This 67-nucleotide RNA from Paraliobacillus sp. PM-2 belongs to the Rfam family "Bacillaceae-1 RNA".
It scores 69 bits against the family's covariance model.
By type it is a small RNA.
RNA sequence: UUAAAUGGAUGUUCGACUAAGGACGUCACGUCCUGUGACAACGUCAAACUGACCUUCAUUGUGAAGG
Numbered sequence: 001u002u003a004a005a006u007g008g009a010u011g012u013u014c015g016a017c018u019a020a021g022g023a024c025g026u027c028a029c030g031u032c033c034u035g036u037g038a039c040a041a042c043g044u045c046a047a048a049c050u051g052a053c054c055u056u057c058a059u060u061g062u063g064a065a066g067g
Base pairs, nucleotide, nucleotide: 011049012048013047015045016044017043025039026038027037028036029035053067054066055065056064057063